[Rfam]
RNA sequence: GAGUAACUAUGACUCUCUUAAGGCGCUUGCUGCCUCAGCAUGACAUCUAAAAGAAGGCAUAAACAUCGUAUGGCAUAAAAGAGGAGGUUUUAGUACGUAGGCGCUGUGGAACUUUAUAGUUCUGAUGAUGCAGUGAAUCGUGCAUGCGGCAAUUCACCCGUAGUAAGGUGACCGUAUCUUUCGAAGAUUUCCUCCCUCUGCGAUC
Dot-bracket structure: ..............................(((((...................))))).....(((((..........((((((((.....(((((....(((((((((((......)))))......))))))...))))).(((((......................)))))..............))).)))))))))).

Overview
R2 RNA element: a 205-nucleotide RNA from Drosophila willistoni. It is annotated as a cis-regulatory element. Gene Ontology term of the family: regulation of reverse transcription. About the family: This family represents the 3' UTR region of the R2 retrotransposable element. This family is known to interact with the R2-encoded reverse transcriptase in a reaction known as target primed reverse transcription (TPRT). It scores 138 bits against the family's covariance model.